[Rfam]
The family of this 94-nucleotide RNA sequence from Papaver somniferum is "Small nucleolar RNA Z266". The organism belongs to Papaver, within Eukaryota.
Nucleotides: 094
Stems, first nucleotide, its partner, number of pairs: 001094009012084001
Number, partner (000 for none) and nucleotide at each position: 001094g002093a003092u004091u005090a006089g007088c008087a009086a010000a011000a012084g013000g014000g015000u016000g017000a018000u019000g020000a021000u022000u023000c024000a025000a026000u027000u028000a029000g030000a031000g032000g033000u034000g035000u036000g037000a038000a039000u040000u041000c042000u043000c044000u045000a046000a047000u048000g049000a050000a051000c052000u053000u054000u055000u056000g057000a058000a059000c060000u061000u062000u063000a064000u065000u066000u067000g068000g069000c070000a071000a072000a073000a074000a075000a076000u077000u078000c079000u080000c081000u082000g083000a084012c085000c086009u087008u088007g089006c090005u091004g092003g093002u094001c
The match comes from Rfam's covariance-model search (54 bits).
Gene Ontology terms of the family: RNA processing and nucleolus.